[Rfam]
RNA sequence: CACUUUGCGCAGUGGCAGUAUCGUAGCCAAUGAGGUUUAUCCGAGGUGCGAUUAUUGCUAAUUGAAAACUUUUCCCUAAAGUAUGAAACCGUUCCCCACAGUGCUGUUCGCACACUCUCAUGACUAAUCCUGUCACCUCUAGAGAG
Numbered sequence: 001c002a003c004u005u006u007g008c009g010c011a012g013u014g015g016c017a018g019u020a021u022c023g024u025a026g027c028c029a030a031u032g033a034g035g036u037u038u039a040u041c042c043g044a045g046g047u048g049c050g051a052u053u054a055u056u057g058c059u060a061a062u063u064g065a066a067a068a069c070u071u072u073u074c075c076c077u078a079a080a081g082u083a084u085g086a087a088a089c090c091g092u093u094c095c096c097c098a099c100a101g102u103g104c105u106g107u108u109c110g111c112a113c114a115c116u117c118u119c120a121u122g123a124c125u126a127a128u129c130c131u132g133u134c135a136c137c138u139c140u141a142g143a144g145a146g
Base pairs, nucleotide, nucleotide: 020052021051022050023049024048026047027046028045034042035041080125081124082123083121084120085119086118088116091113092112139146140145